[Rfam]
The family of this 70-nucleotide RNA from Jaculus jaculus is "mir-290 microRNA precursor family". Taxonomically the source falls in Jaculus (Eukaryota, Metazoa, Chordata, Amniota). The family has 31 seed sequences and 565 matches in Rfam 15.1.
RNA sequence: GGCACACUCAAACUGUGGGGGCACUUUUUUUGUCAUUGGAAGAAAAGUGCCGCCAGUUUUUGAGUGUCCC
Number, nucleotide and partner (000 for none) at each position: 001g000002g000003c000004a067005c066006a065007c064008u063009c062010a061011a060012a059013c000014u000015g000016u055017g054018g053019g000020g051021g050022c049023a048024c047025u046026u000027u044028u043029u042030u000031u000032g000033u000034c000035a000036u000037u000038g000039g000040a000041a000042g029043a028044a027045a000046a025047g024048u023049g022050c021051c020052g000053c018054c017055a016056g000057u000058u000059u012060u011061u010062g009063a008064g007065u006066g005067u004068c000069c000070c000
About this RNA: On this family, see Houbaviy et al., Dev Cell 2003: "Embryonic stem cell-specific MicroRNAs".